[Rfam]
Shown here is a 407-nucleotide sequence from Corynebacterium matruchotii, a member of the family "Bacterial RNase P class A". By type it is a ribozyme. The organism belongs to Corynebacterium matruchotii, within Bacteria.

RNA sequence: UGAGCCGGCCGGGCGAUCGCGGCCAGGUGAACCACCCACUGACCACAAGGGUAGGCGCCACGUCGAGGAAAGUCCGGACUCCACAGAGCGGGGUGGUUGUUAACGGCAACCCAGGGUGACCUGCGGGAUUAGUGCAACAGAAAGUAAACCGCCCGGCACACAGUGCCAGGUAAGGGUGAAACGGUGCGGUAAGAGCGCACCAGCGGGGUAGGCGACUACCUCGGCUGUGUAAACCCCACCCGGAGCAAGGCAAGCAAGGCGCAGCCGGCACCCGUCGAUUGUGCCUGGCAUACGUUCGAGGGCUGCUCGCCCGAAGUAUGCAGGUAGCCGCUUGAGGCAGCCAGCAAUGGUUUGCCCAGAUGGAUGAUCGCCGCCCACAGAAUCCGGCUUAUAGGUCGACUCAAUUG
Numbered sequence: 001u002g003a004g005c006c007g008g009c010c011g012g013g014c015g016a017u018c019g020c021g022g023c024c025a026g027g028u029g030a031a032c033c034a035c036c037c038a039c040u041g042a043c044c045a046c047a048a049g050g051g052u053a054g055g056c057g058c059c060a061c062g063u064c065g066a067g068g069a070a071a072g073u074c075c076g077g078a079c080u081c082c083a084c085a086g087a088g089c090g091g092g093g094u095g096g097u098u099g100u101u102a103a104c105g106g107c108a109a110c111c112c113a114g115g116g117u118g119a120c121c122u123g124c125g126g127g128a129u130u131a132g133u134g135c136a137a138c139a140g141a142a143a144g145u146a147a148a149c150c151g152c153c154c155g156g157c158a159c160a161c162a163g164u165g166c167c168a169g170g171u172a173a174g175g176g177u178g179a180a181a182c183g184g185u186g187c188g189g190u191a192a193g194a195g196c197g198c199a200c201c202a203g204c205g206g207g208g209u210a211g212g213c214g215a216c217u218a219c220c221u222c223g224g225c226u227g228u229g230u231a232a233a234c235c236c237c238a239c240c241c242g243g244a245g246c247a248a249g250g251c252a253a254g255c256a257a258g259g260c261g262c263a264g265c266c267g268g269c270a271c272c273c274g275u276c277g278a279u280u281g282u283g284c285c286u287g288g289c290a291u292a293c294g295u296u297c298g299a300g301g302g303c304u305g306c307u308c309g310c311c312c313g314a315a316g317u318a319u320g321c322a323g324g325u326a327g328c329c330g331c332u333u334g335a336g337g338c339a340g341c342c343a344g345c346a347a348u349g350g351u352u353u354g355c356c357c358a359g360a361u362g363g364a365u366g367a368u369c370g371c372c373g374c375c376c377a378c379a380g381a382a383u384c385c386g387g388c389u390u391a392u393a394g395g396u397c398g399a400c401u402c403a404a405u406u407g
Stems, first nucleotide, its partner, number of pairs: 001403004006398005011392001012372007020065004026059003070390003074387005079245004086308004091241005096110005111125001112123004126236002132234002134230003149175002151171003155167005183201006203225001204223008249329003288321006300312004336355001339352005